RNA sequence: UGACCACCCUUUAUAGGGUUAAGGCCAUACGGACAGCCGGGUCAAAUGCCGA
Number, nucleotide and partner (000 for none) at each position: 001u044002g043003a042004c041005c040006a019007c018008c017009c016010u015011u000012u000013a000014u000015a010016g009017g008018g007019u006020u000021a000022a000023g000024g000025c000026c000027a000028u000029a000030c000031g000032g000033a000034c000035a000036g000037c000038c000039g000040g005041g004042u003043c002044a001045a000046a000047u000048g000049c000050c000051g000052a000

The record is a 52-nucleotide RNA sequence, which matches "Streptococcus sRNA SpF59 (ldcC RNA)" in Rfam.
Rfam's curators put it in the seed alignment.
A reference for the family is Mann et al. (2012), "Control of virulence by small RNAs in Streptococcus pneumoniae", PLoS Pathog.
The family's consensus secondary structure was predicted with mfold.